This 87-nucleotide RNA from Caenorhabditis brenneri belongs to the Rfam family "mir-81 microRNA precursor family".
The match comes from Rfam's covariance-model search (80 bits).
Gene Ontology terms of the family: miRNA-mediated post-transcriptional gene silencing and RISC complex.
On this family, see Lau et al., Science 2001: "An abundant class of tiny RNAs with probable regulatory roles in Caenorhabditis elegans".
Taxonomically the source falls in Caenorhabditis (Eukaryota, Bilateria, Ecdysozoa, Rhabditidae).
The family has 10 seed sequences and 68 matches in Rfam 15.1.
RNA sequence: GUUCUCCUAGCAACAGGUUCUCACUGUGAUCUGCAGAGUAUAAAGCCUACAUCUGAGAUCAUCGUGAAAGCCAGUUGCUUACGAACU
Numbered sequence: 001g002u003u004c005u006c007c008u009a010g011c012a013a014c015a016g017g018u019u020c021u022c023a024c025u026g027u028g029a030u031c032u033g034c035a036g037a038g039u040a041u042a043a044a045g046c047c048u049a050c051a052u053c054u055g056a057g058a059u060c061a062u063c064g065u066g067a068a069a070g071c072c073a074g075u076u077g078c079u080u081a082c083g084a085a086c087u
Stems, first nucleotide, its partner, number of pairs: 009079004016072004021067004027061006035054003038050002